[Rfam]
Glutamine riboswitch aptamer (glnA leader): a 65-nucleotide RNA from cyanobacterium endosymbiont of Rhopalodia gibberula.
Taxonomically the source falls in Cyanobacteriota (Bacteria, Bacillati).
Gene Ontology term of the family: glutamine binding.
For this family Rfam cites "Structural and Dynamic Basis for Low-Affinity, High-Selectivity Binding of L-Glutamine by the Glutamine Riboswitch" (Ren et al., Cell Rep, 2015).

RNA sequence: AUCGUUCAUCUGCCUACUUGGUAGACGGAAGUAAGAAGUUGUGAGAGCUUCUGAAGGAACGCGCC
Numbered sequence: 001a002u003c004g005u006u007c008a009u010c011u012g013c014c015u016a017c018u019u020g021g022u023a024g025a026c027g028g029a030a031g032u033a034a035g036a037a038g039u040u041g042u043g044a045g046a047g048c049u050u051c052u053g054a055a056g057g058a059a060c061g062c063g064c065c
Stems, first nucleotide, its partner, number of pairs: 003061005009025005028062001034052007